[Rfam]
RNA: Group II catalytic intron D1-D4-6
RNA sequence: AAAGUCCCCGACCAUUGAAGGACCAGUAAUCCACAGGGUCCCCGAGUCAUGUGUUGCAUACCGCGAGGUAUGGAGCGAAGCGUUGACAGGCUAGCCAUUGAGCCACGAAGUGUAAAGUGUAUAUUAAAUUCCCGGGUGCCGACGUUGUAUUGUUUACGGAAGGCAACAUCAUGGGGUGUGUUAAUGCGAGUGCCAUAUGGACCCAGCGGGAUCUGAGACCC
Numbered sequence: 001a002a003a004g005u006c007c008c009c010g011a012c013c014a015u016u017g018a019a020g021g022a023c024c025a026g027u028a029a030u031c032c033a034c035a036g037g038g039u040c041c042c043c044g045a046g047u048c049a050u051g052u053g054u055u056g057c058a059u060a061c062c063g064c065g066a067g068g069u070a071u072g073g074a075g076c077g078a079a080g081c082g083u084u085g086a087c088a089g090g091c092u093a094g095c096c097a098u099u100g101a102g103c104c105a106c107g108a109a110g111u112g113u114a115a116a117g118u119g120u121a122u123a124u125u126a127a128a129u130u131c132c133c134g135g136g137u138g139c140c141g142a143c144g145u146u147g148u149a150u151u152g153u154u155u156a157c158g159g160a161a162g163g164c165a166a167c168a169u170c171a172u173g174g175g176g177u178g179u180g181u182u183a184a185u186g187c188g189a190g191u192g193c194c195a196u197a198u199g200g201a202c203c204c205a206g207c208g209g210g211a212u213c214u215g216a217g218a219c220c221c
Stems, first nucleotide, its partner, number of pairs: 012038002015036003020032003026187002042090002046087004050082002052077004057072006099215001100213001102212001104210001106208002132206001134204004138164003143158003169200005175194005